[Rfam]
This 46-nucleotide sequence from Phycisphaerae bacterium RAS1 belongs to the Rfam family "Acido-Lenti-1 RNA". NCBI's taxonomy places the organism under Bacteria, Pseudomonadati, Planctomycetota, Phycisphaerae.

Nucleotides: 046
Base pairs, nucleotide, nucleotide: 001020002019003018004017005016006015007014008013033045034044035043036042037041
Number, partner (000 for none) and nucleotide at each position: 001020c002019c003018c004017c005016g006015g007014g008013c009000u010000g011000a012000c013008g014007c015006c016005c017004g018003g019002g020001g021000c022000u023000u024000u025000a026000u027000u028000c029000u030000g031000c032000c033045g034044c035043c036042c037041c038000u039000a040000c041037g042036g043035g044034g045033c046000u

Rfam 15.1 lists 2,607 matches to the family in 171 species. The family's RNA type in Rfam is small RNA.